[Rfam]
RNA sequence: GCUAUAACGUGUGCACGGUGUUCAUCUGUGUCUGGUAGCAUGUCUGUCUGCGUUUUGCAUUCAGUUCUUGCUAUUCACACAAACAUCAUGCAGCCGAAGAGUGAGUUGGGAUCAUAGUACUGGUCUAGUGUUGUCUCUUUGGACCUGUCCACCACUGGCCAGCCUCCAAAUUCCCACACACAA
Dot-bracket structure: ............(((.............(((.((((((((.(.(((..(((.....)))..))).)..))))).))).))).......)))...............(((((........((((((.((((.((..((....))..)).....)))))))))).........))))).......